[Rfam]
RNA sequence: UGCUCUGUAACCUUCGGGGGCUUCUUAGGUGGAGCGGGGAGGACGUGGACCAGCAAGGGUGUUCUGCUGCGUUGACGCGGUGCUCUGCUUGGCUGUGUGUCGGUGCGGCGUGCCCCCCUGCAGAGGGGUGCUGCGCGUCCGCCGUUAAAGUAGGGGAAGAGGGUCAGGCCGGCAACGGAACAGCCCACCCCGCGCACGUCUGCCGUUGCAGAAUCACACCGCGGAGCAUGUCAGCACUU
Numbered sequence: 001u002g003c004u005c006u007g008u009a010a011c012c013u014u015c016g017g018g019g020g021c022u023u024c025u026u027a028g029g030u031g032g033a034g035c036g037g038g039g040a041g042g043a044c045g046u047g048g049a050c051c052a053g054c055a056a057g058g059g060u061g062u063u064c065u066g067c068u069g070c071g072u073u074g075a076c077g078c079g080g081u082g083c084u085c086u087g088c089u090u091g092g093c094u095g096u097g098u099g100u101c102g103g104u105g106c107g108g109c110g111u112g113c114c115c116c117c118c119u120g121c122a123g124a125g126g127g128g129u130g131c132u133g134c135g136c137g138u139c140c141g142c143c144g145u146u147a148a149a150g151u152a153g154g155g156g157a158a159g160a161g162g163g164u165c166a167g168g169c170c171g172g173c174a175a176c177g178g179a180a181c182a183g184c185c186c187a188c189c190c191c192g193c194g195c196a197c198g199u200c201u202g203c204c205g206u207u208g209c210a211g212a213a214u215c216a217c218a219c220c221g222c223g224g225a226g227c228a229u230g231u232c233a234g235c236a237c238u239u
Stems, first nucleotide, its partner, number of pairs: 011018002055239003062236001064234003076223007084212005091204003095199006101141003105138002108136004112131002115128005145149001150193002153190003161186004169178003
Record summary
The record is a 239-nucleotide RNA sequence from Leptomonas pyrrhocoris, which matches "Protozoan signal recognition particle RNA" in Rfam. Gene Ontology terms of the family: SRP-dependent cotranslational protein targeting to membrane, signal sequence recognition and signal recognition particle, endoplasmic reticulum targeting. Clan: SRP clan. The literature on the family includes a 2003 paper in Nucleic Acids Res by Rosenblad et al., "SRPDB: Signal Recognition Particle Database". Lineage of the source: Eukaryota > Euglenozoa > Metakinetoplastina > Trypanosomatida > Leptomonas. The match comes from Rfam's covariance-model search (124 bits).